[Rfam]
The record is a 76-nucleotide sequence from Comamonas sp. BIGb0124, which matches "SAH (S-adenosyl-L-homocysteine) riboswitch aptamer" in Rfam.

RNA sequence: CCUGCCGAGGAGCGUUGCAGCAUCCCUUUUUUGCGGGUGCGAGGCUCGGUAUUCAUCGCAACGACGCUCGCCCACG
Numbered sequence: 001c002c003u004g005c006c007g008a009g010g011a012g013c014g015u016u017g018c019a020g021c022a023u024c025c026c027u028u029u030u031u032u033g034c035g036g037g038u039g040c041g042a043g044g045c046u047c048g049g050u051a052u053u054c055a056u057c058g059c060a061a062c063g064a065c066g067c068u069c070g071c072c073c074a075c076g
Stems, first nucleotide, its partner, number of pairs: 003051006021039005